A member of the RNA family "Lysine riboswitch aptamer" from Clostridium tarantellae, 172 nucleotides long.
It scores 117 bits against the family's covariance model.
The organism belongs to Clostridium, within Bacteria.

RNA sequence: AUGAAAGAUAGAGGUUGCAAUAAUAAAUAAUAAUACUAAGGAGAGAAGCAACGAUGAAUUAGUAUGAAAGGGAUUAUUGCCGAAGUGUAUAAUUAAUGCUUUAAUAUUAUAUGCUGGGGUUGUAUAAAACAUAUACAACACUGUCACAAAUUUGUGGGGUGCUAUCUUUGUG
Numbered sequence: 001a002u003g004a005a006a007g008a009u010a011g012a013g014g015u016u017g018c019a020a021u022a023a024u025a026a027a028u029a030a031u032a033a034u035a036c037u038a039a040g041g042a043g044a045g046a047a048g049c050a051a052c053g054a055u056g057a058a059u060u061a062g063u064a065u066g067a068a069a070g071g072g073a074u075u076a077u078u079g080c081c082g083a084a085g086u087g088u089a090u091a092a093u094u095a096a097u098g099c100u101u102u103a104a105u106a107u108u109a110u111a112u113g114c115u116g117g118g119g120u121u122g123u124a125u126a127a128a129a130c131a132u133a134u135a136c137a138a139c140a141c142u143g144u145c146a147c148a149a150a151u152u153u154g155u156g157g158g159g160u161g162c163u164a165u166c167u168u169u170g171u172g
Stems, first nucleotide, its partner, number of pairs: 006167006017080008033065007084115010116142002119139008144157005